[Rfam]
Shown here is a 118-nucleotide RNA sequence from Companilactobacillus tucceti, a member of the family "DUF3800-I RNA".
RNA sequence: UAGUUGUACAGAGAAAACUCUGAUAAACAGGCAAUGAGCUAUUAUAAUAGUAAGUGUUAUAUGUUAACACCUCACGUUUGUUGGAAAGUCACGCUGAUGCGUGGCUUUUUUAGUUAAA
Numbered sequence: 001u002a003g004u005u006g007u008a009c010a011g012a013g014a015a016a017a018c019u020c021u022g023a024u025a026a027a028c029a030g031g032c033a034a035u036g037a038g039c040u041a042u043u044a045u046a047a048u049a050g051u052a053a054g055u056g057u058u059a060u061a062u063g064u065u066a067a068c069a070c071c072u073c074a075c076g077u078u079u080g081u082u083g084g085a086a087a088g089u090c091a092c093g094c095u096g097a098u099g100c101g102u103g104g105c106u107u108u109u110u111u112a113g114u115u116a117a118a
Base pairs, nucleotide, nucleotide: 007023009022010021011020012019013018026082027081028080029079030078031077035074036073037072038071039050040049041048054070055069056068057067058066059065085108086107087106088105089104090103091102092101093100094099
It is annotated as a small RNA. A search with the family's covariance model found it, with a score of 45 bits. The family's consensus secondary structure is taken from published work.